[Rfam]
RNA sequence: ACCGAUAAAGGCUAACCUAUCGUGAGGUAGGGGCGCAAAGCUUCCGGUCUUGACAAAUUGUCAAGAAAGCGGGGUUGCCGAAG
Numbered sequence: 001a002c003c004g005a006u007a008a009a010g011g012c013u014a015a016c017c018u019a020u021c022g023u024g025a026g027g028u029a030g031g032g033g034c035g036c037a038a039a040g041c042u043u044c045c046g047g048u049c050u051u052g053a054c055a056a057a058u059u060g061u062c063a064a065g066a067a068a069g070c071g072g073g074g075u076u077g078c079c080g081a082a083g
Stems, first nucleotide, its partner, number of pairs: 003080002011036002016031006034069001039076004044072003048066006